[Rfam]
RNA sequence: AACAUCAGAGAUGAAAACACAGUCCCCGUCGGGUAGUCGUGGGCGUGCGGUUAUGCCGCAUCAGUAACCUGCCUCCUUGGUUGUCCCUUCUCUGCAUGGUUUAU
Numbered sequence: 001a002a003c004a005u006c007a008g009a010g011a012u013g014a015a016a017a018c019a020c021a022g023u024c025c026c027c028g029u030c031g032g033g034u035a036g037u038c039g040u041g042g043g044c045g046u047g048c049g050g051u052u053a054u055g056c057c058g059c060a061u062c063a064g065u066a067a068c069c070u071g072c073c074u075c076c077u078u079g080g081u082u083g084u085c086c087c088u089u090c091u092c093u094g095c096a097u098g099g100u101u102u103a104u
Stems, first nucleotide, its partner, number of pairs: 006094006022044002025042002027039002045061006071081003
Dot-bracket structure: .....((((((..........((.((((.........)).))))((((((.....)))))).........(((.....))).......))))))..........
The family of this 104-nucleotide RNA from Eggerthella sp. CAG:298 is "azaaromatic riboswitch aptamer (yjdF RNA)". Taxonomically the source falls in Eggerthella (Bacteria, Bacillati, Coriobacteriia, Eggerthellaceae). The match comes from Rfam's covariance-model search (63 bits).